[Rfam]
RNA sequence: CAGGGGGCAGCUGAAAACCCUGAAUAGAGUAGGCG
Numbered sequence: 001c002a003g004g005g006g007g008c009a010g011c012u013g014a015a016a017a018c019c020c021u022g023a024a025u026a027g028a029g030u031a032g033g034c035g
Base pairs, nucleotide, nucleotide: 002021003020004019005018010034011033012032